RNA sequence: CGGUGAGGUAGAGGUGCAAUGAAUAUUAGUAAUUAACAGGAGAAUGACAACGAUGAUUGUUAAUGAAAGGAUUUGUUGCCGAAGCAUAAUAGGGGGUCAAACUUAUUAUUGCUGGGAUGUCUUUAAAUAAAGGACAUACUGUCAUGCGAGCAUUUGUGCAUGGAGAACUACUGAUCGA
Numbered sequence: 001c002g003g004u005g006a007g008g009u010a011g012a013g014g015u016g017c018a019a020u021g022a023a024u025a026u027u028a029g030u031a032a033u034u035a036a037c038a039g040g041a042g043a044a045u046g047a048c049a050a051c052g053a054u055g056a057u058u059g060u061u062a063a064u065g066a067a068a069g070g071a072u073u074u075g076u077u078g079c080c081g082a083a084g085c086a087u088a089a090u091a092g093g094g095g096g097u098c099a100a101a102c103u104u105a106u107u108a109u110u111g112c113u114g115g116g117a118u119g120u121c122u123u124u125a126a127a128u129a130a131a132g133g134a135c136a137u138a139c140u141g142u143c144a145u146g147c148g149a150g151c152a153u154u155u156g157u158g159c160a161u162g163g164a165g166a167a168c169u170a171c172u173g174a175u176c177g178a
Base pairs, nucleotide, nucleotide: 007172008171009170010169011168016079017078018077019076020075021074022073023072024071032064033063034062035061036060037059038058039057083113084112085111086109087108088107089106090105091104092103093102114140115139117137118136119135120134121133122132123131124130142163143162144161145160146159147158148157

Shown here is a 178-nucleotide sequence from Oceanobacillus limi, a member of the family "Lysine riboswitch aptamer". The family's consensus secondary structure is taken from published work. It scores 124 bits against the family's covariance model.